RNA: SL2 RNA
Organism: Panagrolaimus sp. PS1159
RNA sequence: GUUUUUUACCCAAGUAUCAAGGUACUAGGUGAUUUCUAUGACCUUCCAAUAAAAUGGUUGUGUCAUAACCAAUUGAAUUUUUGGAUCAGCAUUAUCGGGGAAUAUAUCCGGUAAUGCAAA
Dot-bracket structure: .......(.(..(((((....)))))..)...).....(((((..((........))..).))))...........................(((.(.((.......))..).)))....